[Rfam]
This 87-nucleotide RNA from Medicago truncatula belongs to the Rfam family "MIR2617 microRNA precursor family". The family's consensus secondary structure was predicted with RNAalifold. Lineage of the source: Eukaryota > Tracheophyta > Gunneridae > fabids > Medicago.
RNA sequence: AAUUAGUGUGACAUGCCCGUUGGGUGUUAAACUCUGAUGUAUUAUUUAUUAUUUAAUUGUUUGGGAUAACGAGAUGUUACAGCUAGU
Numbered sequence: 001a002a003u004u005a006g007u008g009u010g011a012c013a014u015g016c017c018c019g020u021u022g023g024g025u026g027u028u029a030a031a032c033u034c035u036g037a038u039g040u041a042u043u044a045u046u047u048a049u050u051a052u053u054u055a056a057u058u059g060u061u062u063g064g065g066a067u068a069a070c071g072a073g074a075u076g077u078u079a080c081a082g083c084u085a086g087u
Base pairs, nucleotide, nucleotide: 002087003086004085005084006083007081008080009079010078011077012076013075014074016073018071019070020069021068